[Rfam]
RNA sequence: UUUACUUGGAGGUCUUGUUAUAAUGCAGAUUCUGAUCUAGUAAGUCUGGGUCAAGGCCCAAGAUUCUGCAUUUCUAACAAGCUCCCAGGUGAUGACAA
Numbered sequence: 001u002u003u004a005c006u007u008g009g010a011g012g013u014c015u016u017g018u019u020a021u022a023a024u025g026c027a028g029a030u031u032c033u034g035a036u037c038u039a040g041u042a043a044g045u046c047u048g049g050g051u052c053a054a055g056g057c058c059c060a061a062g063a064u065u066c067u068g069c070a071u072u073u074c075u076a077a078c079a080a081g082c083u084c085c086c087a088g089g090u091g092a093u094g095a096c097a098a
Stems, first nucleotide, its partner, number of pairs: 003091003009085001011083001014081007022072002025069005031063003
Rfam assigns this 98-nucleotide RNA sequence from Diceros bicornis to the family "mir-544 microRNA precursor family". The literature on the family includes a 2010 paper in Genes Dev by Chiang et al., "Mammalian microRNAs: experimental evaluation of novel and previously annotated genes". Lineage of the source: Eukaryota > Eumetazoa > Sarcopterygii > Mammalia > Diceros bicornis. Its family is annotated with RISC complex and miRNA-mediated post-transcriptional gene silencing in the Gene Ontology.